[Rfam]
RNA: M-box riboswitch aptamer (ykoK leader)
Organism: Blautia sp. CAG:257
RNA sequence: AAACAGUUUCGGUAGGUGAGGCUACCACAGGGAUUUGGAUUUUCCUAAGAUUGCUGCCGCAAAAACGUGGAGACACGAUUCGCUGGUCAGCAGGAUAUGUCGCAGUCAAGGCAUAACCUAAUGCAAUUUUUACGCCCUGUGAUGCUAAAGCUUGAACGAUGUUUCACAGG
Numbered sequence: 001a002a003a004c005a006g007u008u009u010c011g012g013u014a015g016g017u018g019a020g021g022c023u024a025c026c027a028c029a030g031g032g033a034u035u036u037g038g039a040u041u042u043u044c045c046u047a048a049g050a051u052u053g054c055u056g057c058c059g060c061a062a063a064a065a066c067g068u069g070g071a072g073a074c075a076c077g078a079u080u081c082g083c084u085g086g087u088c089a090g091c092a093g094g095a096u097a098u099g100u101c102g103c104a105g106u107c108a109a110g111g112c113a114u115a116a117c118c119u120a121a122u123g124c125a126a127u128u129u130u131u132a133c134g135c136c137c138u139g140u141g142a143u144g145c146u147a148a149a150g151c152u153u154g155a156a157c158g159a160u161g162u163u164u165c166a167c168a169g170g
Stems, first nucleotide, its partner, number of pairs: 006165001010161001011157001013109001015152003020146003026141007050127005057085001059083002066077004093118002096115001099112003